[Rfam]
RNA sequence: UAAUUGCCACAACGGCUUCCUGACGUGGCAGAGCAGUAGAAUAUUGGAGCA
Numbered sequence: 001u002a003a004u005u006g007c008c009a010c011a012a013c014g015g016c017u018u019c020c021u022g023a024c025g026u027g028g029c030a031g032a033g034c035a036g037u038a039g040a041a042u043a044u045u046g047g048a049g050c051a
Base pairs, nucleotide, nucleotide: 004032005031006029007028008027009026010025013022014021015050016049017048019047020046
RNA: SAM/SAH riboswitch aptamer